[Rfam]
RNA sequence: AGCAUCCUUUUCUUGGGGUUGCGCUGCCGUCCAAUGAACGAGUAGUAAGGGCAGUACUGCCAACGCCUACCCAACAUGCCCGCAUCAACUAGAGCUCCGCUUUCCUUUGGUGCAAUUUUUGGAAAA
Numbered sequence: 001a002g003c004a005u006c007c008u009u010u011u012c013u014u015g016g017g018g019u020u021g022c023g024c025u026g027c028c029g030u031c032c033a034a035u036g037a038a039c040g041a042g043u044a045g046u047a048a049g050g051g052c053a054g055u056a057c058u059g060c061c062a063a064c065g066c067c068u069a070c071c072c073a074a075c076a077u078g079c080c081c082g083c084a085u086c087a088a089c090u091a092g093a094g095c096u097c098c099g100c101u102u103u104c105c106u107u108u109g110g111u112g113c114a115a116u117u118u119u120u121g122g123a124a125a126a
Stems, first nucleotide, its partner, number of pairs: 006018004021060003026055002029052004038046002082113006091103005
RNA: U4atac minor spliceosomal RNA
Organism: Prolemur simus